[Rfam]
Shown here is a 131-nucleotide sequence from Luteitalea pratensis, a member of the family "SAM-I/IV (S-adenosyl methionine) riboswitch aptamer". The family is grouped with related families in Rfam's "SAM clan". Gene Ontology terms of the family: regulation of gene expression and S-adenosylmethionine metabolic process. Taxonomically the source falls in Luteitalea (Bacteria, Pseudomonadati, Acidobacteriota, Vicinamibacterales). A search with the family's covariance model found it, with a score of 44 bits.
RNA sequence: UCACGACAUCCGGAGCGGCUCGCAAGGUGCGGGCCCGGCAACCUGGGGCGGACAUCCCAAGGUGCCAGCCCGGUCGGCCACCAGGCCGAUCGUGGCGAUGCGGUUCGAGACGAACAAUCAAAGUGUCCGUG
Numbered sequence: 001u002c003a004c005g006a007c008a009u010c011c012g013g014a015g016c017g018g019c020u021c022g023c024a025a026g027g028u029g030c031g032g033g034c035c036c037g038g039c040a041a042c043c044u045g046g047g048g049c050g051g052a053c054a055u056c057c058c059a060a061g062g063u064g065c066c067a068g069c070c071c072g073g074u075c076g077g078c079c080a081c082c083a084g085g086c087c088g089a090u091c092g093u094g095g096c097g098a099u100g101c102g103g104u105u106c107g108a109g110a111c112g113a114a115c116a117a118u119c120a121a122a123g124u125g126u127c128c129g130u131g
Stems, first nucleotide, its partner, number of pairs: 007100004015036001017035008037066003042062003045058003050127002103115004